[Rfam]
RNA: EFASI RNA
Organism: Salmonella enterica
RNA sequence: AAAGAUCGAUACCGGAGGGGGGGCGAUGAUGCCGCGGAGAAUUCCUGCUCACGCAGGCAGCCUGUACCGCGUACAGUCUGAAACUCCCUAUACCUCAACAAACUGCCACUCCGGCGUGAAGGUAUCGUUCU
Numbered sequence: 001a002a003a004g005a006u007c008g009a010u011a012c013c014g015g016a017g018g019g020g021g022g023g024c025g026a027u028g029a030u031g032c033c034g035c036g037g038a039g040a041a042u043u044c045c046u047g048c049u050c051a052c053g054c055a056g057g058c059a060g061c062c063u064g065u066a067c068c069g070c071g072u073a074c075a076g077u078c079u080g081a082a083a084c085u086c087c088c089u090a091u092a093c094c095u096c097a098a099c100a101a102a103c104u105g106c107c108a109c110u111c112c113g114g115c116g117u118g119a120a121g122g123u124a125u126c127g128u129u130c131u
Base pairs, nucleotide, nucleotide: 002131004129005128007127008126009125010124011123012122013121021035022033023032024031025030036087037086038085039084044057045056046055047054048053058080059079060078063075064074065073066072067071